[Rfam]
RNA sequence: UCUGUGGAAAAUGAUGACUUGGAACUUUUUUCCCCAACAGAUCGACAGUGUUGAUCCAAGAAGCAUUUUAGCCAAAACCUGUCUGAUUCCACCAGA
Number, nucleotide and partner (000 for none) at each position: 001u096002c095003u094004g092005u091006g090007g089008a088009a087010a000011a000012u000013g000014a000015u000016g000017a000018c000019u000020u000021g000022g000023a000024a000025c000026u000027u000028u000029u000030u000031u000032c000033c000034c000035c000036a000037a000038c000039a000040g000041a000042u000043c000044g000045a000046c000047a000048g000049u000050g000051u000052u000053g000054a000055u000056c000057c000058a000059a000060g000061a000062a000063g000064c000065a000066u000067u000068u000069u000070a000071g000072c000073c000074a000075a000076a000077a000078c000079c000080u000081g000082u000083c000084u000085g000086a000087u009088u008089c007090c006091a005092c004093c000094a003095g002096a001
This 96-nucleotide RNA sequence from Ornithorhynchus anatinus belongs to the Rfam family "Small nucleolar SNORD12/SNORD106". The source organism's lineage runs through Eukaryota, Eumetazoa, Bilateria, Teleostomi and Ornithorhynchus. By type it is a C/D-box small nucleolar RNA. The family's consensus secondary structure was predicted with RNAalifold. Its family is annotated with nucleolus and RNA processing in the Gene Ontology. On this family, see Huttenhofer et al., EMBO J 2001: "RNomics: an experimental approach that identifies 201 candidates for novel, small, non-messenger RNAs in mouse".